RNA: PyrR binding site
RNA sequence: GUUACCUUUAAUUCAGUCCUGUGAGACUGGCAAGGUGGAACAGACGUGGUCUGUUUACAAUAAAAAUCAGUAGAUUGAAUCUCUUAAUCUAGAUUUUUAUGUGUGCAUAAAGCACCUUGCCUAUAGUGGGCAAGGUGCUUUUUCAU
Numbered sequence: 001g002u003u004a005c006c007u008u009u010a011a012u013u014c015a016g017u018c019c020u021g022u023g024a025g026a027c028u029g030g031c032a033a034g035g036u037g038g039a040a041c042a043g044a045c046g047u048g049g050u051c052u053g054u055u056u057a058c059a060a061u062a063a064a065a066a067u068c069a070g071u072a073g074a075u076u077g078a079a080u081c082u083c084u085u086a087a088u089c090u091a092g093a094u095u096u097u098u099a100u101g102u103g104u105g106c107a108u109a110a111a112g113c114a115c116c117u118u119g120c121c122u123a124u125a126g127u128g129g130g131c132a133a134g135g136u137g138c139u140u141u142u143u144c145a146u
Stems, first nucleotide, its partner, number of pairs: 003037006013030006063097006071091008109141014